The record is an 88-nucleotide sequence from Leucocoprinus leucothites, which matches "tRNA" in Rfam.
Lineage of the source: Eukaryota > Agaricomycotina > Agaricomycetes > Agaricomycetidae > Leucocoprinus.
Gene Ontology term of the family: triplet codon-amino acid adaptor activity.
The family's consensus secondary structure is taken from published work.
RNA sequence: GGCAACAUGGCCGAGUGGUCUAAGGCGCUGGAAUUAGGAAUACUUUAUCCAGUCCGAAAGGGCGUGGGUUCGAACCCCACUGUUGUCA
Numbered sequence: 001g002g003c004a005a006c007a008u009g010g011c012c013g014a015g016u017g018g019u020c021u022a023a024g025g026c027g028c029u030g031g032a033a034u035u036a037g038g039a040a041u042a043c044u045u046u047a048u049c050c051a052g053u054c055c056g057a058a059a060g061g062g063c064g065u066g067g068g069u070u071c072g073a074a075c076c077c078c079a080c081u082g083u084u085g086u087c088a
Base pairs, nucleotide, nucleotide: 001087002086003085004084005083006082007081010026011025012024028052029051030050031049032048064080065079066078067077068076
The match comes from Rfam's covariance-model search (49 bits).